Rfam assigns this 169-nucleotide RNA sequence from Rhodanobacter spathiphylli to the family "FMN riboswitch aptamer (RFN element)". The match comes from Rfam's covariance-model search (88 bits). Lineage of the source: Bacteria > Pseudomonadota > Lysobacterales > Rhodanobacter > Rhodanobacter spathiphylli. The base pairs follow the family's consensus structure, which is taken from published work. About the family: The RFN element is a highly conserved domain that is found frequently in the 5'-untranslated regions of prokaryotic mRNAs that encode for flavin mononucleotide (FMN) biosynthesis and transport proteins.
[Rfam]
RNA sequence: CAGCGUCUUCAGGGCGGGGCGAAAUUCCCCACCGGCGGUAGGUUCUUCGGAACGAGCCCGCGAGCGCUUCCGGCCAGGCCGGAAGGUCAGCAGAUCCGGUCAGACUCCGGAGCCGACGGUUGGAAGCGGGCGACCGUUUCCUCACAGUCCGGAUAAAGAGAAGACGGCA
Number, nucleotide and partner (000 for none) at each position: 001c000002a000003g000004c166005g165006u164007c163008u162009u161010c160011a000012g000013g000014g000015c000016g000017g029018g028019g027020c000021g000022a000023a000024a000025u000026u000027c019028c018029c017030c000031a000032c000033c115034g114035g061036c060037g059038g058039u000040a000041g000042g000043u000044u000045c000046u000047u000048c000049g000050g000051a000052a000053c000054g000055a000056g113057c112058c038059c037060g036061c035062g000063a000064g091065c090066g000067c000068u000069u000070c000071c000072g000073g000074c000075c000076a000077g000078g000079c000080c000081g000082g000083a000084a000085g000086g000087u000088c000089a000090g065091c064092a000093g000094a000095u111096c110097c109098g108099g107100u000101c000102a000103g000104a000105c000106u000107c099108c098109g097110g096111a095112g057113c056114c034115g033116a000117c151118g150119g149120u000121u000122g000123g000124a000125a000126g000127c000128g000129g000130g000131c000132g000133a000134c000135c000136g000137u000138u000139u000140c000141c000142u000143c000144a000145c000146a000147g000148u000149c119150c118151g117152g000153a000154u000155a000156a000157a000158g000159a000160g010161a009162a008163g007164a006165c005166g004167g000168c000169a000